The family of this 197-nucleotide RNA sequence from Paenibacillus dendrobii is "c-di-AMP riboswitch aptamer (ydaO/yuaA leader)". The pairing is the family consensus, mapped onto this sequence. This family represents a conserved RNA structure found upstream of the ydaO and yuaA genes in Bacillus subtilis and related genes in other bacteria. It scores 93 bits against the family's covariance model.
RNA sequence: AUUGAAUUUACGCUGAAUUUUCAUUGUGAAAAGCGGGGGAACCAUAUUGGCAUAGACUUUCAUUUCUGCUAUCGGAGCGGGUGAUGUCAAUGCAAGGGGUGAAUCGGAUCAGAUGGUCAUAGGCCGUCUGCAUCCGUAGGGCAACUCUCACUGCCCGAAUCCGUCAGCUAACCUCGUAAGCGUCGCUAUGAGAGAGG
Numbered sequence: 001a002u003u004g005a006a007u008u009u010a011c012g013c014u015g016a017a018u019u020u021u022c023a024u025u026g027u028g029a030a031a032a033g034c035g036g037g038g039g040a041a042c043c044a045u046a047u048u049g050g051c052a053u054a055g056a057c058u059u060u061c062a063u064u065u066c067u068g069c070u071a072u073c074g075g076a077g078c079g080g081g082u083g084a085u086g087u088c089a090a091u092g093c094a095a096g097g098g099g100u101g102a103a104u105c106g107g108a109u110c111a112g113a114u115g116g117u118c119a120u121a122g123g124c125c126g127u128c129u130g131c132a133u134c135c136g137u138a139g140g141g142c143a144a145c146u147c148u149c150a151c152u153g154c155c156c157g158a159a160u161c162c163g164u165c166a167g168c169u170a171a172c173c174u175c176g177u178a179a180g181c182g183u184c185g186c187u188a189u190g191a192g193a194g195a196g197g
Stems, first nucleotide, its partner, number of pairs: 011182004018032003033177006043096001097162003105136004139156004